[Rfam]
Rfam assigns this 61-nucleotide RNA sequence from Pristionchus pacificus to the family "mir-8364 microRNA precursor family". Rfam 15.1 lists 3,320 matches to the family in 2 species. The match comes from Rfam's covariance-model search (70 bits). The base pairs follow the family's consensus structure, which was predicted with RNAalifold.

Nucleotides: 061
Stems, first nucleotide, its partner, number of pairs: 001059003005055003010050001012048006019041004
Number, partner (000 for none) and nucleotide at each position: 001059u002058c003057c004000c005055c006054g007053u008000u009000u010050u011000g012048c013047a014046c015045a016044c017043u018000c019041u020040c021039u022038c023000g024000u025000c026000g027000g028000u029000c030000a031000g032000a033000c034000a035000g036000a037000c038022g039021a040020g041019a042000g043017a044016g045015u046014g047013u048012g049000u050010g051000a052000a053007a054006u055005g056000a057003g058002g059001a060000g061000a